A member of the RNA family "Bacillaceae-1 RNA" from Paenisporosarcina antarctica, 67 nucleotides long. The organism belongs to Paenisporosarcina, within Bacteria. Rfam classes the family as a small RNA.
RNA sequence: AGGUAAGGAACGAAGGCUAAGAACGCGACGUCCUGUCGCAACGCCUUCAUGACCCGCUUCCUGUGGG
Numbered sequence: 001a002g003g004u005a006a007g008g009a010a011c012g013a014a015g016g017c018u019a020a021g022a023a024c025g026c027g028a029c030g031u032c033c034u035g036u037c038g039c040a041a042c043g044c045c046u047u048c049a050u051g052a053c054c055c056g057c058u059u060c061c062u063g064u065g066g067g
Stems, first nucleotide, its partner, number of pairs: 012048006025039005053067005